[Rfam]
Prion pseudoknot: a 46-nucleotide sequence from Myotis davidii. The source organism's lineage runs through Eukaryota, Teleostomi, Theria, Vespertilionidae and Myotis. The literature on the family includes a 2001 paper in Nucleic Acids Res by Barrette et al., "Pseudoknots in prion protein mRNAs confirmed by comparative sequence analysis and pattern searching". The match comes from Rfam's covariance-model search (50 bits). From the family's description: This family represents a predicted pseudoknot structure found in prion protein mRNA. It has been suggested that the family has a possible effect in prion protein translation. It is annotated as a cis-regulatory element.
RNA sequence: CCAUGGUGGUGGAGGCUGGGGUCAGCCCCCUGGGGGUGGAGGCUGG
Numbered sequence: 001c002c003a004u005g006g007u008g009g010u011g012g013a014g015g016c017u018g019g020g021g022u023c024a025g026c027c028c029c030c031u032g033g034g035g036g037u038g039g040a041g042g043c044u045g046g
Stems, first nucleotide, its partner, number of pairs: 001033003005029002